The record is a 105-nucleotide RNA from Prunus avium, which matches "MIR6274 microRNA precursor family" in Rfam. The family has 2 seed sequences and 342 matches in Rfam 15.1. A search with the family's covariance model found it, with a score of 94 bits. Its family is annotated with miRNA-mediated post-transcriptional gene silencing and RISC complex in the Gene Ontology.
RNA sequence: GGAUAACACUGUUUUAUUAUUCUCGGUUAAUAACACAAUGAUACGUGAAAAAAUUAUCCUACGUGUCAUUGUGUUAUUGACCGAGAAUAACAAAAAGUGUUAUCC
Numbered sequence: 001g002g003a004u005a006a007c008a009c010u011g012u013u014u015u016a017u018u019a020u021u022c023u024c025g026g027u028u029a030a031u032a033a034c035a036c037a038a039u040g041a042u043a044c045g046u047g048a049a050a051a052a053a054u055u056a057u058c059c060u061a062c063g064u065g066u067c068a069u070u071g072u073g074u075u076a077u078u079g080a081c082c083g084a085g086a087a088u089a090a091c092a093a094a095a096a097g098u099g100u101u102a103u104c105c
Stems, first nucleotide, its partner, number of pairs: 002104004012095004017090004022085026050057001